A member of the RNA family "raiA-hairpin RNA" from Streptomyces sp. PAMC 26508, 48 nucleotides long. By type it is a small RNA. The organism belongs to Streptomyces, within Bacteria.
RNA sequence: CACCGAAUCCGCGGCUCCGGCGAUCACCGGGGUCUGGUGCAAAAGGGA
Numbered sequence: 001c002a003c004c005g006a007a008u009c010c011g012c013g014g015c016u017c018c019g020g021c022g023a024u025c026a027c028c029g030g031g032g033u034c035u036g037g038u039g040c041a042a043a044a045g046g047g048a
Base pairs, nucleotide, nucleotide: 013034014033015032016031017030018029019028020027